A member of the RNA family "caulobacter sRNA CC3513" from Caulobacter sp. K31, 171 nucleotides long.
RNA sequence: AUCCGCCUUGGGCGGGGCUCAGGCUGGGCGUUCGUUAGAGCGAACGGACCCGGCCGAUCCCGCGAGGCGAGGUCGGAUGAUGGUGGUGGCCGUGAUGAUGCGGCUGGCGGGUCAUUGUGGCGGGGCUAUAGCGGAUGAGGAGGGGUGGGGGAAGGGGCAGCAUCGGCAGAG
Numbered sequence: 001a002u003c004c005g006c007c008u009u010g011g012g013c014g015g016g017g018c019u020c021a022g023g024c025u026g027g028g029c030g031u032u033c034g035u036u037a038g039a040g041c042g043a044a045c046g047g048a049c050c051c052g053g054c055c056g057a058u059c060c061c062g063c064g065a066g067g068c069g070a071g072g073u074c075g076g077a078u079g080a081u082g083g084u085g086g087u088g089g090c091c092g093u094g095a096u097g098a099u100g101c102g103g104c105u106g107g108c109g110g111g112u113c114a115u116u117g118u119g120g121c122g123g124g125g126c127u128a129u130a131g132c133g134g135a136u137g138a139g140g141a142g143g144g145g146u147g148g149g150g151g152a153a154g155g156g157g158c159a160g161c162a163u164c165g166g167c168a169g170a171g
Stems, first nucleotide, its partner, number of pairs: 002016005017158004022055007029046006058152004063147002068142001072136003076132001080129005087123001089121004095115005101109002

Lineage of the source: Bacteria > Pseudomonadati > Alphaproteobacteria > Caulobacterales > Caulobacter.
The literature on the family includes a 2008 paper in Mol Microbiol by Landt et al., "Small non-coding RNAs in Caulobacter crescentus".